[Rfam]
RNA sequence: AUCACCCGAGGAUCCUGUUAAAAUGCAGAUUCUGGUUCAGUCUGGGAUGGGGCCUGAGAUUCUGCAUUUCUGACAAGCUCUCGGUGAUGCUUA
Numbered sequence: 001a002u003c004a005c006c007c008g009a010g011g012a013u014c015c016u017g018u019u020a021a022a023a024u025g026c027a028g029a030u031u032c033u034g035g036u037u038c039a040g041u042c043u044g045g046g047a048u049g050g051g052g053c054c055u056g057a058g059a060u061u062c063u064g065c066a067u068u069u070c071u072g073a074c075a076a077g078c079u080c081u082c083g084g085u086g087a088u089g090c091u092u093a
Stems, first nucleotide, its partner, number of pairs: 003086003009081003014077001016075005021069003025065005031059003
A member of the RNA family "mir-544 microRNA precursor family" from Pongo abelii, 93 nucleotides long. The source organism's lineage runs through Eukaryota, Euteleostomi, Mammalia, Euarchontoglires and Pongo. Gene Ontology terms of the family: miRNA-mediated post-transcriptional gene silencing and RISC complex. A reference for the family is Chiang et al. (2010), "Mammalian microRNAs: experimental evaluation of novel and previously annotated genes", Genes Dev.